Record summary: The record is a 52-nucleotide RNA from Gulo gulo, which matches "mir-1302 microRNA precursor family" in Rfam.
[Rfam]
RNA sequence: UUUUUUGUAGAAAUAUGUCCCAUAUAAUAUUUGGGAUAUACUUAUACUAAAA
Numbered sequence: 001u002u003u004u005u006u007g008u009a010g011a012a013a014u015a016u017g018u019c020c021c022a023u024a025u026a027a028u029a030u031u032u033g034g035g036a037u038a039u040a041c042u043u044a045u046a047c048u049a050a051a052a
Stems, first nucleotide, its partner, number of pairs: 007047003011043002014040003018036004022031001